Rfam assigns this 87-nucleotide sequence from Mola mola to the family "mir-145 microRNA precursor family". Taxonomically the source falls in Mola (Eukaryota, Deuterostomia, Neoteleostei, Molidae). The family's consensus secondary structure was predicted with RNAalifold. Its family is annotated with miRNA-mediated post-transcriptional gene silencing and RISC complex in the Gene Ontology.

RNA sequence: UCCUCUCUCCUGGGGUCCAGUUUUCCCAGGAAUCCCUGACCUAUCAGAAAAGGGGAUUCCUGGAAAUACUGUUCUUAGGGGUGGGGC
Numbered sequence: 001u002c003c004u005c006u007c008u009c010c011u012g013g014g015g016u017c018c019a020g021u022u023u024u025c026c027c028a029g030g031a032a033u034c035c036c037u038g039a040c041c042u043a044u045c046a047g048a049a050a051a052g053g054g055g056a057u058u059c060c061u062g063g064a065a066a067u068a069c070u071g072u073u074c075u076u077a078g079g080g081g082u083g084g085g086g087c
Base pairs, nucleotide, nucleotide: 018071019070020069021068023066024065026063027062028061029060030059031058032057033056034055035054036053037052